[Rfam]
RNA sequence: GGCGAUGUGAGGAGACUGAAGCAUCUGAGAGUUUUCGUGUGGAUAACACAUCAAAUGGUCUUCAAAGUUCUCUGAUCGCU
Number, nucleotide and partner (000 for none) at each position: 001g080002g079003c078004g077005a076006u000007g000008u000009g000010a000011g000012g000013a000014g000015a000016c000017u000018g000019a000020a000021g000022c000023a000024u000025c000026u000027g000028a000029g000030a000031g000032u000033u000034u000035u000036c000037g000038u000039g000040u000041g000042g000043a000044u000045a000046a000047c000048a000049c000050a000051u000052c000053a000054a000055a000056u000057g000058g000059u000060c000061u000062u000063c000064a000065a000066a000067g000068u000069u000070c000071u000072c000073u000074g000075a000076u005077c004078g003079c002080u001
Notes:
A member of the RNA family "Small nucleolar RNA R160" from Setaria viridis, 80 nucleotides long. The source organism's lineage runs through Eukaryota, Streptophytina, Tracheophyta, Panicodae and Setaria. On this family, see Chen et al., Nucleic Acids Res 2003: "The high diversity of snoRNAs in plants: identification and comparative study of 120 snoRNA genes from Oryza sativa". Rfam describes the family as follows. snoR160 is a C/D box small nucleolar RNA, which acts as a methylation guide for 25S ribosomal RNA in plants. snoR160 has been alternatively named snoZ270 in rice. It scores 61 bits against the family's covariance model.